[Rfam]
RNA sequence: GGACAUAAACGCGCUCGUAAUAAGCGGAUCGGACCCGGGGGCGGUACCCGGCGACUCCACCAUAUUACCACCGGCGGCAUCCUUCAUUUGGGGAGGUCAUUCGGGAUUGUGGGGUCGAAAUAGGAUCGACGAACGUCUAAAGGGGUUUGCUUUGUUUCGGUGAGUUACCACCGUUAUCGGUACAUUUAAGCUAGUUGCAAAUGACAACAAAGCUCCAGUAGCACUCGCAGCGUAA
Dot-bracket structure: (((((.......((((........((..(((...(((((.......)))))(((((((((................................................)))))))))............))).)).......))))......)))))((((........))))..............................................................
Numbered sequence: 001g002g003a004c005a006u007a008a009a010c011g012c013g014c015u016c017g018u019a020a021u022a023a024g025c026g027g028a029u030c031g032g033a034c035c036c037g038g039g040g041g042c043g044g045u046a047c048c049c050g051g052c053g054a055c056u057c058c059a060c061c062a063u064a065u066u067a068c069c070a071c072c073g074g075c076g077g078c079a080u081c082c083u084u085c086a087u088u089u090g091g092g093g094a095g096g097u098c099a100u101u102c103g104g105g106a107u108u109g110u111g112g113g114g115u116c117g118a119a120a121u122a123g124g125a126u127c128g129a130c131g132a133a134c135g136u137c138u139a140a141a142g143g144g145g146u147u148u149g150c151u152u153u154g155u156u157u158c159g160g161u162g163a164g165u166u167a168c169c170a171c172c173g174u175u176a177u178c179g180g181u182a183c184a185u186u187u188a189a190g191c192u193a194g195u196u197g198c199a200a201a202u203g204a205c206a207a208c209a210a211a212g213c214u215c216c217a218g219u220a221g222c223a224c225u226c227g228c229a230g231c232g233u234a235a
Stems, first nucleotide, its partner, number of pairs: 001157005013146004025135002029132003035051005052117009158173004
This 235-nucleotide RNA sequence from Nereida ignava belongs to the Rfam family "permuted transfer-messenger RNA".
A search with the family's covariance model found it, with a score of 135 bits.
Rfam classes the family as a non-coding RNA gene.
Lineage of the source: Bacteria > Pseudomonadati > Pseudomonadota > Alphaproteobacteria > Nereida.
Rfam's curators write: Bacterial tmRNA, also known as 10Sa RNA or SsrA, is named for its dual tRNA and mRNA-like properties. Its role is to liberate the mRNA from a stalled ribosome. To accomplish this part of the tmRNA is used as a reading frame that ends in a translation stop signal. The broken mRNA is replaced in the ribosome by the tmRNA and translation of the tmRNA leads to addition of a proteolysis tag to the incomplete protein enabling recognition by a protease. Recently a number of permuted tmRNA genes have been found encoded in two parts. tmRNAs have been identified in eubacteria and some chloroplasts but are absent from archaeal and eukaryote nuclear genomes.